[Rfam]
RNA sequence: UUUAAUUAAUUACUUAAGCUUAUAAGAAACGGGGGAACCAUAAUCUGGGGCUAAUUUUCAUUGUUAAUCUGUGAAAAAGAACAACUCUCAGUUCUAGUCCGUCAGCUAACUCCGUAGGCAUUGAGAGUGGACUG
Numbered sequence: 001u002u003u004a005a006u007u008a009a010u011u012a013c014u015u016a017a018g019c020u021u022a023u024a025a026g027a028a029a030c031g032g033g034g035g036a037a038c039c040a041u042a043a044u045c046u047g048g049g050g051c052u053a054a055u056u057u058u059c060a061u062u063g064u065u066a067a068u069c070u071g072u073g074a075a076a077a078a079g080a081a082c083a084a085c086u087c088u089c090a091g092u093u094c095u096a097g098u099c100c101g102u103c104a105g106c107u108a109a110c111u112c113c114g115u116a117g118g119c120a121u122u123g124a125g126a127g128u129g130g131a132c133u134g
Stems, first nucleotide, its partner, number of pairs: 011120001013118002020026001029115006039047002048100003056076006079094004